[Rfam]
RNA sequence: AUGAAGGAGCAAUACCCAAGUUCUUGUUCUAUCAAGAGGGUGGGUAUUGCUCCUUCAACUUC
Numbered sequence: 001a002u003g004a005a006g007g008a009g010c011a012a013u014a015c016c017c018a019a020g021u022u023c024u025u026g027u028u029c030u031a032u033c034a035a036g037a038g039g040g041u042g043g044g045u046a047u048u049g050c051u052c053c054u055u056c057a058a059c060u061u062c
Stems, first nucleotide, its partner, number of pairs: 002057017022037005
Dot-bracket structure: .(((((((((((((((((...(((((......)))))...))))))))))))))))).....